[Rfam]
Shown here is a 54-nucleotide sequence from Salvelinus namaycush, a member of the family "UnaL2 LINE 3' element". Rfam's curators write: The eel long interspersed element (LINE) UnaL2 and its partner short interspersed element (SINE) share a conserved 3' tail containing a stem-loop that is critical for their retrotransposition. The family's RNA type in Rfam is cis-regulatory element. The family's consensus secondary structure is taken from published work.

RNA sequence: AAUGUAUGUACUUGUAAGUCGCUCUGGAUAAGAGCGUCUGCUAAAUGACUAUGU
Numbered sequence: 001a002a003u004g005u006a007u008g009u010a011c012u013u014g015u016a017a018g019u020c021g022c023u024c025u026g027g028a029u030a031a032g033a034g035c036g037u038c039u040g041c042u043a044a045a046u047g048a049c050u051a052u053g054u
Base pairs, nucleotide, nucleotide: 013043014041015040016039020036021035022034023033024032025031